A member of the RNA family "Bacillaceae-1 RNA" from Psychrobacillus psychrotolerans, 68 nucleotides long. The base pairs follow the family's consensus structure, which is taken from published work. The source organism's lineage runs through Bacteria, Bacillati, Bacilli, Caryophanales and Psychrobacillus. Rfam classes the family as a small RNA.
[Rfam]
RNA sequence: UACUACUGAUUUCAAAGGCUAAGAGCGCCACCUCGUGUGGCAACGCCUUUGUGACCACAUCCUGUUAG
Numbered sequence: 001u002a003c004u005a006c007u008g009a010u011u012u013c014a015a016a017g018g019c020u021a022a023g024a025g026c027g028c029c030a031c032c033u034c035g036u037g038u039g040g041c042a043a044c045g046c047c048u049u050u051g052u053g054a055c056c057a058c059a060u061c062c063u064g065u066u067a068g
Base pairs, nucleotide, nucleotide: 013051014050015049016048017047018046019045027041028040029039030038031037055068057065058064